A member of the RNA family "tRNA" from Paenibacillus albidus, 86 nucleotides long. Lineage of the source: Bacteria > Bacillati > Bacillota > Bacilli > Paenibacillus. The family is grouped with related families in Rfam's "tRNA clan".

RNA sequence: GGAGAGGUACCGAAGCGGUCAUAACGGGGCGGUCUUGAAAACCGUUAGAGUGCAAGCUCACAUGGGUUCGAAUCCCAUCCUCUCCG
Dot-bracket structure: (((((((..(((............))).(((((.......)))))................(((((.......)))))))))))).
Numbered sequence: 001g002g003a004g005a006g007g008u009a010c011c012g013a014a015g016c017g018g019u020c021a022u023a024a025c026g027g028g029g030c031g032g033u034c035u036u037g038a039a040a041a042c043c044g045u046u047a048g049a050g051u052g053c054a055a056g057c058u059c060a061c062a063u064g065g066g067u068u069c070g071a072a073u074c075c076c077a078u079c080c081u082c083u084c085c086g
Stems, first nucleotide, its partner, number of pairs: 001085007010027003029045005062078005